Rfam assigns this 83-nucleotide sequence from Azomonas agilis to the family "SAH (S-adenosyl-L-homocysteine) riboswitch aptamer".
NCBI's taxonomy places the organism under Bacteria, Pseudomonadati, Pseudomonadota, Pseudomonadaceae, Azomonas.
RNA sequence: CCAUCCGAGGGGCGCUGCACCAGGUUACACCUGUCAGGCUCGGAAGGGACGUUGCUACAACGCAUCAACGGCGCCCAACUGCA
Numbered sequence: 001c002c003a004u005c006c007g008a009g010g011g012g013c014g015c016u017g018c019a020c021c022a023g024g025u026u027a028c029a030c031c032u033g034u035c036a037g038g039c040u041c042g043g044a045a046g047g048g049a050c051g052u053u054g055c056u057a058c059a060a061c062g063c064a065u066c067a068a069c070g071g072c073g074c075c076c077a078a079c080u081g082c083a
Stems, first nucleotide, its partner, number of pairs: 002046001004044005021033005